[Rfam]
RNA: Glycine riboswitch aptamer
Organism: Tsuneonella litorea
RNA sequence: ACGUCCGCCAUGGGAGAGCGCCUUUCCUCGGAAGGGCCGCCGAAGGAGCAACCGCCCCGGAAACUCUCAGGCCAAAGGACCGUGGCGGGCCG
Numbered sequence: 001a002c003g004u005c006c007g008c009c010a011u012g013g014g015a016g017a018g019c020g021c022c023u024u025u026c027c028u029c030g031g032a033a034g035g036g037c038c039g040c041c042g043a044a045g046g047a048g049c050a051a052c053c054g055c056c057c058c059g060g061a062a063a064c065u066c067u068c069a070g071g072c073c074a075a076a077g078g079a080c081c082g083u084g085g086c087g088g089g090c091c092g
Base pairs, nucleotide, nucleotide: 006087007086008085009084010083011082012081013080020037021036022035023034039072040071041070042068043067046066047065048064052060053059